[Rfam]
RNA sequence: AAGCGACCGAUUCGAAGCGCCGGAGAAUGGGAUAGGAAUCCGGCCACGUACGACACGCGCAUGACGGAGACGUACGCCCCCAGAGUCGCCCGGGCCUGCCUACGUCU
Number, nucleotide and partner (000 for none) at each position: 001a000002a000003g089004c088005g087006a086007c085008c000009g000010a000011u000012u000013c000014g000015a000016a000017g000018c000019g000020c043021c042022g041023g040024a000025g000026a000027a000028u035029g000030g000031g000032a000033u000034a000035g028036g000037a000038a000039u000040c023041c022042g021043g020044c000045c000046a000047c076048g075049u074050a000051c000052g000053a000054c000055a000056c066057g065058c000059g000060c000061a000062u000063g000064a000065c057066g056067g000068a000069g000070a000071c000072g000073u000074a049075c048076g047077c000078c000079c000080c000081c000082a000083g000084a000085g007086u006087c005088g004089c003090c000091c000092g101093g100094g099095c000096c000097u000098g000099c094100c093101u092102a000103c000104g000105u000106c000107u000
The record is a 107-nucleotide RNA from Mycobacterium saskatchewanense, which matches "Mycobacterium sRNA ncrMT1302" in Rfam. The source organism's lineage runs through Bacteria, Bacillati, Mycobacteriaceae, Mycobacterium and Mycobacterium simiae complex. For this family Rfam cites "A screen for non-coding RNA in Mycobacterium tuberculosis reveals a cAMP-responsive RNA that is expressed during infection" (Pelly et al., Gene, 2012).